A member of the RNA family "ylbH leader" from Aquisalibacillus elongatus, 137 nucleotides long. The base pairs follow the family's consensus structure. It is annotated as a cis-regulatory leader. This family is a putative regulatory RNA structure that is found upstream of the ylbH gene in B. subtilis and related low GC Gram-positive bacteria. Gene Ontology term of the family: regulation of gene expression.
[Rfam]
RNA sequence: AUAAAAAAAGUGGUUCUUUCUUAAUCUUAUGAUUAAAAAAGAACCACAACUCUCCGUUUACUAACAGAGAGAGUACAAAAAGGGAGAGGAGAAACCGGAAGAAGGUCUUAUGGGGAAUGAUAAGACUUUCUCCGUAU
Numbered sequence: 001a002u003a004a005a006a007a008a009a010g011u012g013g014u015u016c017u018u019u020c021u022u023a024a025u026c027u028u029a030u031g032a033u034u035a036a037a038a039a040a041g042a043a044c045c046a047c048a049a050c051u052c053u054c055c056g057u058u059u060a061c062u063a064a065c066a067g068a069g070a071g072a073g074u075a076c077a078a079a080a081a082g083g084g085a086g087a088g089g090a091g092a093a094a095c096c097g098g099a100a101g102a103a104g105g106u107c108u109u110a111u112g113g114g115g116a117a118u119g120a121u122a123a124g125a126c127u128u129u130c131u132c133c134g135u136a137u
Stems, first nucleotide, its partner, number of pairs: 011046009050084004062072001096134004101130002103127002106125005
For this family Rfam cites "New RNA motifs suggest an expanded scope for riboswitches in bacterial genetic control" (Barrick et al., Proc Natl Acad Sci U S A, 2004).